[Rfam]
mir-16 microRNA precursor family: a 79-nucleotide RNA sequence from Illadopsis cleaveri. Its family is annotated with miRNA-mediated post-transcriptional gene silencing and RISC complex in the Gene Ontology. It scores 72 bits against the family's covariance model. Lineage of the source: Eukaryota > Theropoda > Neognathae > Australaves > Illadopsis.
RNA sequence: GUCCCGCCCUAGCAGCACGUAAAUAUUGGCGUGUGACAGAACCUUCAACCCCAAUAUUGUUGUGCUGCUUCAGCGUGGC
Numbered sequence: 001g002u003c004c005c006g007c008c009c010u011a012g013c014a015g016c017a018c019g020u021a022a023a024u025a026u027u028g029g030c031g032u033g034u035g036a037c038a039g040a041a042c043c044u045u046c047a048a049c050c051c052c053a054a055u056a057u058u059g060u061u062g063u064g065c066u067g068c069u070u071c072a073g074c075g076u077g078g079c
Base pairs, nucleotide, nucleotide: 001079002078003077005075006074007073010072011069012068013067014066015065016064017063018062020059022058023057024056025055026054027053028052029051